[Rfam]
RNA sequence: UACCUAUCCAGAGCGGUGGAGGGACAGGCCCGAUGAAACCCGGCAACCAGCGUAAGUAUGGUGCCACUACCAGCAAAUUUUUUGCAAUGAUGGGAU
Numbered sequence: 001u002a003c004c005u006a007u008c009c010a011g012a013g014c015g016g017u018g019g020a021g022g023g024a025c026a027g028g029c030c031c032g033a034u035g036a037a038a039c040c041c042g043g044c045a046a047c048c049a050g051c052g053u054a055a056g057u058a059u060g061g062u063g064c065c066a067c068u069a070c071c072a073g074c075a076a077a078u079u080u081u082u083u084g085c086a087a088u089g090a091u092g093g094g095a096u
Stems, first nucleotide, its partner, number of pairs: 003094006013041001015040003021031003025073001027071002042065004047061002049057001069088001074084004
This 96-nucleotide RNA from Acetobacterium woodii belongs to the Rfam family "SAM riboswitch aptamer (S box leader)". The base pairs follow the family's consensus structure, which is taken from published work. The match comes from Rfam's covariance-model search (69 bits).